[Rfam]
RNA sequence: CUAAGAAAUAAAGAUACCUAUAAAAGAUAAAGCUGUACCAGGAAAUCACCUCCUUAGCCUGCGCGGGCCCCUCACGCAGGCUAAUUU
Numbered sequence: 001c002u003a004a005g006a007a008a009u010a011a012a013g014a015u016a017c018c019u020a021u022a023a024a025a026g027a028u029a030a031a032g033c034u035g036u037a038c039c040a041g042g043a044a045a046u047c048a049c050c051u052c053c054u055u056a057g058c059c060u061g062c063g064c065g066g067g068c069c070c071c072u073c074a075c076g077c078a079g080g081c082u083a084a085u086u087u
Stems, first nucleotide, its partner, number of pairs: 040054004056082008065073002
RNA: CyaR/Rye RNA